[Rfam]
RNA sequence: CAAUGAAGGAAGCAUGGUAAUGUGCACAGAAAUUGAAUUGGGUCUAUAGGCCUGCCCUCUCUGAUGCCAUUUGGCUUUGAUUUGGGGGCAUGGUCGGCAACAAAACAG
Numbered sequence: 001c002a003a004u005g006a007a008g009g010a011a012g013c014a015u016g017g018u019a020a021u022g023u024g025c026a027c028a029g030a031a032a033u034u035g036a037a038u039u040g041g042g043u044c045u046a047u048a049g050g051c052c053u054g055c056c057c058u059c060u061c062u063g064a065u066g067c068c069a070u071u072u073g074g075c076u077u078u079g080a081u082u083u084g085g086g087g088g089c090a091u092g093g094u095c096g097g098c099a100a101c102a103a104a105a106c107a108g
Stems, first nucleotide, its partner, number of pairs: 012025004040091001042089003050081001052079001054075003
Small nucleolar RNA snoR100: a 108-nucleotide RNA sequence from Rhododendron williamsianum. Pairs were carried over by alignment from the consensus structure, which was predicted with WAR. It scores 96 bits against the family's covariance model. The literature on the family includes a 2002 paper in Curr Biol by Marker et al., "Experimental RNomics: identification of 140 candidates for small non-messenger RNAs in the plant Arabidopsis thaliana". Taxonomically the source falls in Rhododendron (Eukaryota, Streptophytina, Pentapetalae, Ericaceae). Rfam links the family to the GO terms nucleolus and RNA processing. The family has 9 seed sequences and 1,851 matches in Rfam 15.1.